[Rfam]
RNA: RNase MRP
RNA sequence: GAAUCACAGGAUGGUGUGAAUGGGCCCGCUUCCCUGUCGUUUGGCUGGGUGGGCCCAGGAAAGUCCCCGGGCCGUCCAUGCAGAGAUGCAGGCUCGGAAACGAGUUAUCCUUGAUUUGGAAUUCAAUAAUAGGCUGAGACAAGUGUGGAGCUUAGAAUUUCGAUGAAGGAAUCUUGGCCGACAACACAGUCAUUCACACGGCCCAUUGGGCCUACUGAACGGGGCUUAUAGUCCUGUGGUU
Numbered sequence: 001g002a003a004u005c006a007c008a009g010g011a012u013g014g015u016g017u018g019a020a021u022g023g024g025c026c027c028g029c030u031u032c033c034c035u036g037u038c039g040u041u042u043g044g045c046u047g048g049g050u051g052g053g054c055c056c057a058g059g060a061a062a063g064u065c066c067c068c069g070g071g072c073c074g075u076c077c078a079u080g081c082a083g084a085g086a087u088g089c090a091g092g093c094u095c096g097g098a099a100a101c102g103a104g105u106u107a108u109c110c111u112u113g114a115u116u117u118g119g120a121a122u123u124c125a126a127u128a129a130u131a132g133g134c135u136g137a138g139a140c141a142a143g144u145g146u147g148g149a150g151c152u153u154a155g156a157a158u159u160u161c162g163a164u165g166a167a168g169g170a171a172u173c174u175u176g177g178c179c180g181a182c183a184a185c186a187c188a189g190u191c192a193u194u195c196a197c198a199c200g201g202c203c204c205a206u207u208g209g210g211c212c213u214a215c216u217g218a219a220c221g222g223g224g225c226u227u228a229u230a231g232u233c234c235u236g237u238g239g240u241u
Base pairs, nucleotide, nucleotide: 002241003240004239005238006237007236008235009234010233011232014199015198016197017196018195019194021057022056023055024054025053026052027051028050029049030048031047061227062226063225065224066223067222068221079090080089081088082087091106092105093104094103095102096101108170109169110168112163120158122156123155131153132152133151134150141146201211202210203209204208